RNA sequence: AUUUUGCACUGGGGGAGCCGCUUUUUGGGCUGAGACAAGCAUUGCUUGGACCCUUUGAACCUGAUCUGGAUUAUGCCGGCGGAGGGAAGUGGCAACUGCAUACU
Numbered sequence: 001a002u003u004u005u006g007c008a009c010u011g012g013g014g015g016a017g018c019c020g021c022u023u024u025u026u027g028g029g030c031u032g033a034g035a036c037a038a039g040c041a042u043u044g045c046u047u048g049g050a051c052c053c054u055u056u057g058a059a060c061c062u063g064a065u066c067u068g069g070a071u072u073a074u075g076c077c078g079g080c081g082g083a084g085g086g087a088a089g090u091g092g093c094a095a096c097u098g099c100a101u102a103c104u
Base pairs, nucleotide, nucleotide: 007091008090009089010088011054012053013052014051017030018029019028037047038046039045040044060085061084062083066079067078068077069076

Rfam assigns this 104-nucleotide RNA sequence from Planococcus halotolerans to the family "TPP riboswitch aptamer (THI element)". The source organism's lineage runs through Bacteria, Bacillota, Bacilli, Caryophanales and Planococcus.